The family of this 457-nucleotide RNA from Taxus chinensis is "Group I catalytic intron". The literature on the family includes a 1990 paper in Annu Rev Biochem by Cech, "Self-splicing of group I introns". Pairs were carried over by alignment from the consensus structure, which is taken from published work. It scores 89 bits against the family's covariance model. Rfam links the family to the GO term Group I intron splicing.
[Rfam]
RNA sequence: CUAUGGACUUAAUCGAAUUGUGCCUUUGUAUGGAAACUUACUAAGUGAGAGCUUCCAAAUAUAGGGAACCCUGGGAUAUUUUGAAUGGGCAACCCUGAGCCAAAUCUGUAUUAUAGCUAUUCGGAACAAUAGUUUCCUUGUCUAGAAAAGGGAUAGGUGCAGAGACUCGACGGAAGCUAUUCUAACGACUCAAUAUCAUUUGAAUUUUACCCAAUAUUCUAUUUACAGAGUGCAGUAUGUUAUUUAACACUUGAAAAGUGUUAUGUAUCAUUAUUGAAACCAGUUUUAACGAUUAGAGCUUGAGUUGUUCUAGUCUUGCGUAGCCCAAAACCGAUAAGUAAUUAUUAAUUAAAGUAAUCCAAUUAAUAAAUAACUUCUCUAGAAAUAGAAUUUCUUCCAUUUUUGAAUGAUUGGAUGAGGAUAAAGAUAAGAGUCCAAUUCUACAUGUCAAUGCCAA
Number, nucleotide and partner (000 for none) at each position: 001c000002u000003a000004u000005g024006g000007a000008c022009u000010u020011a019012a018013u017014c000015g000016a000017a013018u012019u011020g010021u000022g008023c000024c005025u000026u000027u000028g000029u000030a038031u000032g000033g000034a000035a000036a000037c000038u030039u000040a000041c000042u000043a000044a000045g000046u000047g000048a000049g000050a178051g177052c176053u175054u174055c000056c172057a000058a000059a000060u000061a000062u097063a096064g095065g094066g093067a000068a000069c000070c089071c088072u087073g086074g000075g000076a000077u000078a000079u000080u000081u000082u000083g000084a000085a000086u073087g072088g071089g070090c000091a000092a000093c066094c065095c064096u063097g062098a000099g158100c157101c000102a000103a000104a000105u152106c151107u150108g000109u000110a000111u000112u146113a000114u144115a143116g142117c000118u000119a000120u000121u000122c000123g000124g000125a000126a000127c000128a000129a000130u000131a000132g000133u000134u000135u000136c000137c000138u000139u000140g000141u000142c116143u115144a114145g000146a112147a000148a000149a000150g107151g106152g105153a000154u000155a000156g000157g100158u099159g000160c000161a000162g436163a000164g435165a434166c433167u432168c431169g000170a000171c000172g056173g000174a054175a053176g052177c051178u050179a000180u421181u420182c419183u418184a000185a416186c000187g000188a000189c000190u000191c000192a000193a000194u000195a000196u000197c000198a000199u000200u000201u000202g000203a000204a000205u000206u000207u000208u000209a000210c000211c000212c000213a000214a000215u000216a000217u000218u000219c000220u000221a000222u000223u000224u000225a000226c000227a000228g000229a000230g000231u000232g000233c000234a000235g000236u000237a000238u000239g000240u000241u000242a000243u000244u000245u000246a000247a000248c000249a000250c000251u000252u000253g000254a000255a000256a000257a000258g000259u000260g000261u000262u000263a000264u000265g000266u000267a000268u000269c000270a000271u000272u000273a000274u000275u000276g000277a000278a000279a000280c000281c000282a000283g000284u000285u000286u000287u000288a000289a000290c000291g000292a000293u000294u000295a000296g000297a000298g000299c000300u000301u000302g000303a000304g000305u000306u000307g000308u000309u000310c000311u000312a000313g000314u000315c000316u000317u000318g000319c000320g000321u000322a000323g000324c000325c000326c000327a000328a000329a000330a000331c000332c000333g000334a000335u000336a000337a000338g000339u000340a000341a000342u000343u000344a000345u000346u000347a000348a000349u000350u000351a000352a000353a000354g000355u000356a000357a000358u000359c000360c000361a000362a000363u000364u000365a000366a000367u000368a000369a000370a000371u000372a000373a000374c000375u000376u000377c000378u000379c000380u000381a000382g000383a000384a000385a000386u000387a000388g000389a000390a000391u000392u000393u000394c000395u000396u000397c000398c000399a000400u000401u000402u000403u000404u000405g000406a000407a000408u000409g000410a000411u000412u000413g000414g000415a000416u185417g000418a183419g182420g181421a180422u000423a000424a000425a000426g000427a000428u000429a000430a000431g168432a167433g166434u165435c164436c162437a000438a000439u000440u000441c000442u000443a000444c453445a452446u451447g000448u000449c000450a000451a446452u445453g444454c000455c000456a000457a000